RNA sequence: UCUUAUUCUCAGGGCGGGGUGAAAUUCCCCACCGGCGGUAACCCAUUCUUUCGGGAAGCCCGCGAGCGCUUUUCCCAUCGGGGGAAAAGGUCAGCAGAUCUGGUGAAAUGCCAGAGCCGACGGUCAUAGUCCGGAUGUAAGAGGAUAAGA
Numbered sequence: 001u002c003u004u005a006u007u008c009u010c011a012g013g014g015c016g017g018g019g020u021g022a023a024a025u026u027c028c029c030c031a032c033c034g035g036c037g038g039u040a041a042c043c044c045a046u047u048c049u050u051u052c053g054g055g056a057a058g059c060c061c062g063c064g065a066g067c068g069c070u071u072u073u074c075c076c077a078u079c080g081g082g083g084g085a086a087a088a089g090g091u092c093a094g095c096a097g098a099u100c101u102g103g104u105g106a107a108a109u110g111c112c113a114g115a116g117c118c119g120a121c122g123g124u125c126a127u128a129g130u131c132c133g134g135a136u137g138u139a140a141g142a143g144g145a146u147a148a149g150a
Stems, first nucleotide, its partner, number of pairs: 003148008017029003031130002033119002035063004058117002066095002099115005121133003
The record is a 150-nucleotide RNA from Desulfobaculum xiamenense, which matches "FMN riboswitch aptamer (RFN element)" in Rfam.
The RFN element is a highly conserved domain that is found frequently in the 5'-untranslated regions of prokaryotic mRNAs that encode for flavin mononucleotide (FMN) biosynthesis and transport proteins.
It scores 122 bits against the family's covariance model.
The organism belongs to Desulfobaculum, within Bacteria.